[Rfam]
RNA sequence: AGCUGAGGACGACCUCGGCCUGCGGGCUUCCCUGCCGUCCGGGACGACCCGG
Number, nucleotide and partner (000 for none) at each position: 001a000002g019003c018004u017005g016006a015007g014008g013009a000010c000011g000012a000013c008014c007015u006016c005017g004018g003019c002020c000021u000022g000023c000024g000025g000026g000027c000028u000029u000030c000031c000032c000033u000034g000035c000036c000037g000038u000039c052040c051041g050042g049043g048044a000045c000046g000047a000048c043049c042050c041051g040052g039
RNA: Guanidine-II riboswitch aptamer (mini-ykkC)